[Rfam]
RNA sequence: UAGCCGGUGCAAGUCCGGUCUAGGUAACAGCCAAGUCACCUCAUAGCUGAUGGGCAAUUGGUGGAGAGAUUCUAAGGUUGAAGCCCGUGACAAAGUAACUCCGACUAGAGUGUGAGCAAAUCAGCAGGCCGUAACAUGA
Numbered sequence: 001u002a003g004c005c006g007g008u009g010c011a012a013g014u015c016c017g018g019u020c021u022a023g024g025u026a027a028c029a030g031c032c033a034a035g036u037c038a039c040c041u042c043a044u045a046g047c048u049g050a051u052g053g054g055c056a057a058u059u060g061g062u063g064g065a066g067a068g069a070u071u072c073u074a075a076g077g078u079u080g081a082a083g084c085c086c087g088u089g090a091c092a093a094a095g096u097a098a099c100u101c102c103g104a105c106u107a108g109a110g111u112g113u114g115a116g117c118a119a120a121u122c123a124g125c126a127g128g129c130c131g132u133a134a135c136a137u138g139a
Stems, first nucleotide, its partner, number of pairs: 022041003050088005055080005064071002095113002098111004116132002
The family of this 139-nucleotide sequence from Cohnella nanjingensis is "Group II catalytic intron D1-D4-4".
Rfam describes the family as follows. Group II introns are found in rRNA, tRNA and mRNA of organelles in fungi, plants and protists, and also in mRNA in bacteria.
On this family, see Lehmann and Schmidt, Crit Rev Biochem Mol Biol 2003: "Group II introns: structure and catalytic versatility of large natural ribozymes".
The family has 90 seed sequences and 840 matches in Rfam 15.1.